[Rfam]
RNA sequence: GGUCGGGUAGCGAGUAGUGAUAAAAGACCCCUUAGGGGAAAAGCUGCUGGCCGUCUAUAUCCGGUGUUCAAGUACCCGACCGCCCAUCU
Numbered sequence: 001g002g003u004c005g006g007g008u009a010g011c012g013a014g015u016a017g018u019g020a021u022a023a024a025a026g027a028c029c030c031c032u033u034a035g036g037g038g039a040a041a042a043g044c045u046g047c048u049g050g051c052c053g054u055c056u057a058u059a060u061c062c063g064g065u066g067u068u069c070a071a072g073u074a075c076c077c078g079a080c081c082g083c084c085c086a087u088c089u
Stems, first nucleotide, its partner, number of pairs: 001081009013048004018042001028037003050065004
This 89-nucleotide RNA sequence from Candidatus Symbiopectobacterium sp. Dall1.0 belongs to the Rfam family "sRNA-Xcc1". The literature on the family includes a 2011 paper in RNA Biol by Chen et al., "sRNA-Xcc1, an integron-encoded transposon- and plasmid-transferred trans-acting sRNA, is under the positive control of the key virulence regulators HrpG and HrpX of Xanthomonas campestris pathovar campestris". The family's RNA type in Rfam is small RNA. The source organism's lineage runs through Bacteria, Pseudomonadota, Enterobacteriaceae, ant, tsetse, mealybug, aphid, etc. endosymbionts and Symbiopectobacterium. The base pairs follow the family's consensus structure, which was predicted with RNAalifold.